[Rfam]
RNA: Burkholderiales-2 RNA
RNA sequence: GCAGAGCAGCGGCCCAUGCCCGCUGGUGCUUUUGCCGGUCUGCCCCCGCAGGGCGGGCAGACAUCAUCGGC
Numbered sequence: 001g002c003a004g005a006g007c008a009g010c011g012g013c014c015c016a017u018g019c020c021c022g023c024u025g026g027u028g029c030u031u032u033u034g035c036c037g038g039u040c041u042g043c044c045c046c047c048g049c050a051g052g053g054c055g056g057g058c059a060g061a062c063a064u065c066a067u068c069g070g071c
Stems, first nucleotide, its partner, number of pairs: 001029003008024005034071005041059005
Dot-bracket structure: (((....(((((.......)))))..)))....(((((..(((((.........))))).......)))))